Shown here is a 217-nucleotide RNA from Paenibacillus dendrobii, a member of the family "Bacillus sRNA ncr1575". Pairs were carried over by alignment from the consensus structure, which is taken from published work.

RNA sequence: AAAUACAUUUAUGAGAGGACUGAUGGAUGAACAAUGAUUAACUAAUCUAUAUUUUAUUUGAAAUGAAUAACUUCAAACUACAAAAUAUAGGGUUAGUCUAUCAUUUUUUAUAAAUCAGUUUACAUUUCUAAUGACCAUGAUUCUAAUGGUGAAAUAGAACUUAUUUGAUCGAAGUGAAAGACUAAUCCUUCCAAUUACGAAUUGGGAGGAUUUUUUA
Numbered sequence: 001a002a003a004u005a006c007a008u009u010u011a012u013g014a015g016a017g018g019a020c021u022g023a024u025g026g027a028u029g030a031a032c033a034a035u036g037a038u039u040a041a042c043u044a045a046u047c048u049a050u051a052u053u054u055u056a057u058u059u060g061a062a063a064u065g066a067a068u069a070a071c072u073u074c075a076a077a078c079u080a081c082a083a084a085a086u087a088u089a090g091g092g093u094u095a096g097u098c099u100a101u102c103a104u105u106u107u108u109u110a111u112a113a114a115u116c117a118g119u120u121u122a123c124a125u126u127u128c129u130a131a132u133g134a135c136c137a138u139g140a141u142u143c144u145a146a147u148g149g150u151g152a153a154a155u156a157g158a159a160c161u162u163a164u165u166u167g168a169u170c171g172a173a174g175u176g177a178a179a180g181a182c183u184a185a186u187c188c189u190u191c192c193a194a195u196u197a198c199g200a201a202u203u204g205g206g207a208g209g210a211u212u213u214u215u216u217a
Base pairs, nucleotide, nucleotide: 016109017108018107019106024103026102027101031097032096043095044094045093046092047091048090049088050087051086052085053084054083057077058076059075060074061073062072064070117165118164119163127158128157129156130155184212185211186210187209188208189207190206191205192204193203194202